[Rfam]
RNA sequence: GGCUCAAGACCAUGUUCCGCUGACUCGUCAGCAACAUGCCCAGGUAGCCAUGAUCUUCAAGGCUACGGCGCGGUGUUCUCACCACGUUGAUCGCCCGUUCACAUAAGGCAUCCAUGGCGAACAUCCAUCAGCCCUGAUGGAGAUGC
Numbered sequence: 001g002g003c004u005c006a007a008g009a010c011c012a013u014g015u016u017c018c019g020c021u022g023a024c025u026c027g028u029c030a031g032c033a034a035c036a037u038g039c040c041c042a043g044g045u046a047g048c049c050a051u052g053a054u055c056u057u058c059a060a061g062g063c064u065a066c067g068g069c070g071c072g073g074u075g076u077u078c079u080c081a082c083c084a085c086g087u088u089g090a091u092c093g094c095c096c097g098u099u100c101a102c103a104u105a106a107g108g109c110a111u112c113c114a115u116g117g118c119g120a121a122c123a124u125c126c127a128u129c130a131g132c133c134c135u136g137a138u139g140g141a142g143a144u145g146c
Stems, first nucleotide, its partner, number of pairs: 011038004016033001019032005044066006052092004067088004072083004117146003124141007
radC RNA: a 146-nucleotide RNA sequence from Burkholderia pseudomallei. The family has 148 seed sequences and 500 matches in Rfam 15.1. The sequence is in the family's curated seed alignment. Lineage of the source: Bacteria > Pseudomonadati > Betaproteobacteria > Burkholderia > Burkholderia pseudomallei.